Overview:
The family of this 89-nucleotide RNA from Lactobacillus helveticus is "SAM-III riboswitch aptamer (SMK box)". For this family Rfam cites "Riboswitches that sense S-adenosylhomocysteine and activate genes involved in coenzyme recycling" (Wang et al., Mol Cell, 2008). The base pairs follow the family's consensus structure, which is taken from published work. It is one of the family's seed sequences. The source organism's lineage runs through Bacteria, Bacillati, Bacillota, Bacilli and Lactobacillus helveticus.
RNA sequence: UAUCGGUUCAAGUCCUGAAAGGAUUCACUAUUAUUAGUGAAGAUGCCUUGUAACCGAAUAGCUAAUGUCUAUAUGGGGGGACUAUUAUG
Numbered sequence: 001u002a003u004c005g006g007u008u009c010a011a012g013u014c015c016u017g018a019a020a021g022g023a024u025u026c027a028c029u030a031u032u033a034u035u036a037g038u039g040a041a042g043a044u045g046c047c048u049u050g051u052a053a054c055c056g057a058a059u060a061g062c063u064a065a066u067g068u069c070u071a072u073a074u075g076g077g078g079g080g081a082c083u084a085u086u087a088u089g
Stems, first nucleotide, its partner, number of pairs: 012082005019049004024041005054077002